Nucleotides: 075
Base pairs, nucleotide, nucleotide: 003075004074005073006072007071008070012024014022040069041068042067045065046064048062049061051059
Number, partner (000 for none) and nucleotide at each position: 001000g002000u003075g004074c005073a006072u007071c008070c009000a010000a011000c012024a013000u014022g015000a016000a017000u018000u019000g020000a021000a022014c023000c024012u025000a026000c027000g028000a029000a030000u031000u032000u033000u034000c035000c036000a037000a038000u039000u040069a041068u042067g043000a044000g045065u046064u047000a048062g049061g050000c051059g052000c053000u054000u055000u056000a057000a058000c059051c060000a061049u062048u063000a064046a065045a066000a067042c068041a069040u070008g071007g072006a073005u074004g075003c
The family of this 75-nucleotide RNA sequence from Papaver somniferum is "Plastid-ycf2 5UTR RNA". For this family Rfam cites "Retrograde signaling in plants: A critical review focusing on the GUN pathway and beyond" (Richter et al., Plant Commun, 2023). About the family: Plastid ycf2 is a non-coding RNA (ncRNA) recognised in plastids. It was found in the prime untranslated region (5UTR) of ycf2 genes, it presents a tRNA-like motif which suggests it can be involved in mRNA maturation, particularly involved in defining the precise 5' end of the transcript. Pairs were carried over by alignment from the consensus structure, which was predicted with LocARNA.